[Rfam]
RNA sequence: AAUAAUAAAGUAAAAAAGCCUGAUAUAAUCCGGUAAUAUGGUCCGGAGUUUCUACAAAAAGCCGUAAACUUUUUACUAUUGGGUGAGGGUAACAAAUG
Numbered sequence: 001a002a003u004a005a006u007a008a009a010g011u012a013a014a015a016a017a018g019c020c021u022g023a024u025a026u027a028a029u030c031c032g033g034u035a036a037u038a039u040g041g042u043c044c045g046g047a048g049u050u051u052c053u054a055c056a057a058a059a060a061g062c063c064g065u066a067a068a069c070u071u072u073u074u075a076c077u078a079u080u081g082g083g084u085g086a087g088g089g090u091a092a093c094a095a096a097u098g
Base pairs, nucleotide, nucleotide: 018084019083020082021081022080023079024078025077029047030046031045032044033043056074057073058072059071060070061069